[Rfam]
RNA: Ruegeria trans44 sRNA
Organism: Sulfitobacter sp. SK011
RNA sequence: CAUCGCGAUGCUCUUCAUUCAAGGAGAGAUCGUGAUGAGGUUACUUUCAAAACGCCAGGUCAAGGAGAUGGUCCUGUAUUCACCGCAACACAUAGCCAGACUGGAAAAAGCAGGCCAAUUCCCCAAACGGGUACAGCUGGGCUCGAACCGGGUUGGUUGGGUUGAGCGCGAAGUGCUGGAUUGGCUUGAAGUUCGGCUUGCGCGGCGCGAAGAGCCAAACUGAAACUCCUGAAAAGGAGCGUGGGCGACUGGAUGUGCACUAUCU
Number, nucleotide and partner (000 for none) at each position: 001c037002a036003u035004c034005g033006c032007g031008a030009u029010g000011c000012u027013c026014u025015u024016c023017a000018u000019u000020c000021a000022a000023g016024g015025a014026g013027a012028g000029a009030u008031c007032g006033u005034g004035a003036u002037g001038a000039g000040g000041u000042u000043a000044c000045u000046u000047u000048c000049a000050a000051a000052a000053c000054g000055c200056c000057a198058g197059g000060u195061c000062a000063a000064g000065g187066a186067g185068a000069u183070g182071g181072u180073c179074c178075u000076g000077u175078a174079u173080u172081c170082a000083c000084c166085g000086c164087a163088a162089c161090a000091c159092a158093u000094a157095g000096c155097c000098a153099g000100a000101c151102u150103g149104g000105a000106a000107a000108a000109a143110g142111c141112a000113g138114g137115c136116c000117a000118a000119u000120u000121c131122c130123c129124c000125a000126a000127a000128c000129g123130g122131g121132u000133a000134c000135a000136g115137c114138u113139g000140g000141g111142c110143u109144c000145g000146a000147a000148c000149c103150g102151g101152g000153u098154u000155g096156g000157u094158u092159g091160g000161g089162u088163u087164g086165a000166g084167c000168g000169c000170g081171a000172a080173g079174u078175g077176c000177u000178g074179g073180a072181u071182u070183g069184g000185c067186u066187u065188g000189a000190a000191g000192u000193u000194c000195g060196g000197c058198u057199u000200g055201c000202g000203c000204g249205g000206c247207g246208c245209g000210a000211a000212g000213a000214g000215c000216c000217a000218a000219a000220c244221u243222g242223a000224a000225a000226c239227u238228c237229c236230u235231g000232a000233a000234a000235a230236g229237g228238a227239g226240c000241g000242u222243g221244g220245g208246c207247g206248a000249c204250u000251g000252g264253a263254u262255g000256u000257g000258c000259a000260c000261u000262a254263u253264c252265u000